[Rfam]
RNA sequence: AUCGUUGGACUAUUAAGUCGGAAGUAGGCAUAAGCCGAAGCAACGCACC
Numbered sequence: 001a002u003c004g005u006u007g008g009a010c011u012a013u014u015a016a017g018u019c020g021g022a023a024g025u026a027g028g029c030a031u032a033a034g035c036c037g038a039a040g041c042a043a044c045g046c047a048c049c
Stems, first nucleotide, its partner, number of pairs: 003045005009018003021046001027036003
Shown here is a 49-nucleotide sequence, a member of the family "Glutamine riboswitch aptamer (glnA leader)". The base pairs follow the family's consensus structure, which is taken from published work.